[Rfam]
RNA sequence: AUUCAUCUUCGGGGCAGGGUGAAAAUCCCGACCGGCGGUAAUAGAGUUGUAAAUCGCUAGUGUAGUAGUAAGCUACAGUAGCUCGCAUGAUUUACUAGAUGGCUCUUCAGCCCGCGACCUGUGCAAAGAUUUUUUUGCAUGGCUGACUUGGUGUAAUUCCAAGGCCGACAGUAUAGUCUGGAUGGGAGAAGAUGAAG
Numbered sequence: 001a002u003u004c005a006u007c008u009u010c011g012g013g014g015c016a017g018g019g020u021g022a023a024a025a026u027c028c029c030g031a032c033c034g035g036c037g038g039u040a041a042u043a044g045a046g047u048u049g050u051a052a053a054u055c056g057c058u059a060g061u062g063u064a065g066u067a068g069u070a071a072g073c074u075a076c077a078g079u080a081g082c083u084c085g086c087a088u089g090a091u092u093u094a095c096u097a098g099a100u101g102g103c104u105c106u107u108c109a110g111c112c113c114g115c116g117a118c119c120u121g122u123g124c125a126a127a128g129a130u131u132u133u134u135u136u137g138c139a140u141g142g143c144u145g146a147c148u149u150g151g152u153g154u155a156a157u158u159c160c161a162a163g164g165c166c167g168a169c170a171g172u173a174u175a176g177u178c179u180g181g182a183u184g185g186g187a188g189a190a191g192a193u194g195a196a197g
Stems, first nucleotide, its partner, number of pairs: 003195008017029003031177002033167002035115004119142004147163005169180003